[Rfam]
RNA sequence: UACGAGACCCAUCAAAAGAGUAGUUAUCCGCCCAUUAGCUACUUUAUCAUAUUCUGAAUUC
Numbered sequence: 001u002a003c004g005a006g007a008c009c010c011a012u013c014a015a016a017a018g019a020g021u022a023g024u025u026a027u028c029c030g031c032c033c034a035u036u037a038g039c040u041a042c043u044u045u046a047u048c049a050u051a052u053u054c055u056g057a058a059u060u061c
Stems, first nucleotide, its partner, number of pairs: 017045010